[Rfam]
RNA sequence: GGAGUUGGACAGGCCAUCGCCGCGGACGCGUGCGUCCGGGGAGGAAAGUCCGGGCUGCGCAGGGCGGGACGCUGGGUAACGCCCAGAGGGAGCGAUCCCUGGAAAGCGCCACAGAAAACAGACCGCCCGCGAGGCUUCGACCUCGCAGGUAAGGGUGAAACGGUGGGGCAAGAGCCCACCAGCGGUCGCGGCGACGCGACCGGCUAGGCAAACCCCGUUCGGAGCAAAACCAAAUAGGGGGGCGUUUGAGGCUGGCCCGGCCGAUGCCCCCGGGUAGGUUGCUUGAGGCCGGGAGUAAUUCCGGUCCUAGAGGAAUGAUGGCCGCCCCGGGUCUCCCGGGGAACAAAACCCGGCUUAUCGUCCGACUCCCUUC
Numbered sequence: 001g002g003a004g005u006u007g008g009a010c011a012g013g014c015c016a017u018c019g020c021c022g023c024g025g026a027c028g029c030g031u032g033c034g035u036c037c038g039g040g041g042a043g044g045a046a047a048g049u050c051c052g053g054g055c056u057g058c059g060c061a062g063g064g065c066g067g068g069a070c071g072c073u074g075g076g077u078a079a080c081g082c083c084c085a086g087a088g089g090g091a092g093c094g095a096u097c098c099c100u101g102g103a104a105a106g107c108g109c110c111a112c113a114g115a116a117a118a119c120a121g122a123c124c125g126c127c128c129g130c131g132a133g134g135c136u137u138c139g140a141c142c143u144c145g146c147a148g149g150u151a152a153g154g155g156u157g158a159a160a161c162g163g164u165g166g167g168g169c170a171a172g173a174g175c176c177c178a179c180c181a182g183c184g185g186u187c188g189c190g191g192c193g194a195c196g197c198g199a200c201c202g203g204c205u206a207g208g209c210a211a212a213c214c215c216c217g218u219u220c221g222g223a224g225c226a227a228a229a230c231c232a233a234a235u236a237g238g239g240g241g242g243c244g245u246u247u248g249a250g251g252c253u254g255g256c257c258c259g260g261c262c263g264a265u266g267c268c269c270c271c272g273g274g275u276a277g278g279u280u281g282c283u284u285g286a287g288g289c290c291g292g293g294a295g296u297a298a299u300u301c302c303g304g305u306c307c308u309a310g311a312g313g314a315a316u317g318a319u320g321g322c323c324g325c326c327c328c329g330g331g332u333c334u335c336c337c338g339g340g341g342a343a344c345a346a347a348a349c350c351c352g353g354c355u356u357a358u359c360g361u362c363c364g365a366c367u368c369c370c371u372u373c
Stems, first nucleotide, its partner, number of pairs: 001369010011358001012323007020041002023038006046356003050353005055224002058221001062258004067220005072086005087100005101215002106213001108209003123154002125150003129146005162180006182204001183202008228280004238271006250262004287306008